[Rfam]
RNA sequence: UGAAGGCCAAUUUGUAAAUCGCUCUGGAUAAGAGCGUCUGCUAAAUGACUGAAA
Numbered sequence: 001u002g003a004a005g006g007c008c009a010a011u012u013u014g015u016a017a018a019u020c021g022c023u024c025u026g027g028a029u030a031a032g033a034g035c036g037u038c039u040g041c042u043a044a045a046u047g048a049c050u051g052a053a054a
Base pairs, nucleotide, nucleotide: 013043014041015040016039020036021035022034023033024032025031
RNA: UnaL2 LINE 3' element
Organism: Coregonus sp. 'balchen'